[Rfam]
RNA: RAGATH-11 RNA
RNA sequence: ACUUUCUUCGGAAAGUAUGCCUCAUUUGGGGUUUGAGGCUAGCCAGAUGUAGGUCGAGUUAGUUGUCUAAUGAGUGACCGAGUUUGAGUGAACGUCCCCACGUGCU
Numbered sequence: 001a002c003u004u005u006c007u008u009c010g011g012a013a014a015g016u017a018u019g020c021c022u023c024a025u026u027u028g029g030g031g032u033u034u035g036a037g038g039c040u041a042g043c044c045a046g047a048u049g050u051a052g053g054u055c056g057a058g059u060u061a062g063u064u065g066u067c068u069a070a071u072g073a074g075u076g077a078c079c080g081a082g083u084u085u086g087a088g089u090g091a092a093c094g095u096c097c098c099c100a101c102g103u104g105c106u
Base pairs, nucleotide, nucleotide: 001016002015003014004013005012006011019039020038021037022036023035024034028101030099031098042089043088044086045085046084053078054077055076056075058071059070